[Rfam]
The record is a 128-nucleotide RNA sequence from Flavipsychrobacter stenotrophus, which matches "SAM riboswitch aptamer (S box leader)" in Rfam. It scores 71 bits against the family's covariance model. NCBI's taxonomy places the organism under Bacteria, Bacteroidota, Chitinophagales, Chitinophagaceae, Flavipsychrobacter. Rfam's curators write: The SAM riboswitch is found upstream of a number of genes which code for proteins involved in methionine or cysteine biosynthesis in Gram-positive bacteria.

RNA sequence: CGCUUAUCAAGAAAGGCAGAGGGUUAUGGCCCGUUGAAGCCUUAGCAACCUCUCUCGUAGCAAUACGGGAAACAGGUGCUAAUUCCAUCCUCCUGAAGAAGAAAUUCUGAAGGCAGGAAAGAUAAGUC
Number, nucleotide and partner (000 for none) at each position: 001c000002g127003c126004u125005u124006a123007u122008c121009a000010a000011g000012a000013a043014a042015g041016g040017c039018a000019g000020a000021g032022g031023g030024u000025u000026a088027u087028g086029g085030c023031c022032c021033g000034u000035u000036g000037a000038a000039g017040c016041c015042u014043u013044a080045g079046c078047a077048a000049c076050c075051u072052c000053u070054c069055u068056c067057g066058u000059a000060g000061c000062a000063a000064u000065a000066c057067g056068g055069g054070a053071a000072a051073c000074a000075g050076g049077u047078g046079c045080u044081a000082a000083u000084u120085c029086c028087a027088u026089c117090c116091u115092c000093c113094u112095g000096a000097a000098g000099a000100a000101g000102a000103a000104a000105u000106u000107c000108u000109g000110a000111a000112g094113g093114c000115a091116g090117g089118a000119a000120a084121g008122a007123u006124a005125a004126g003127u002128c000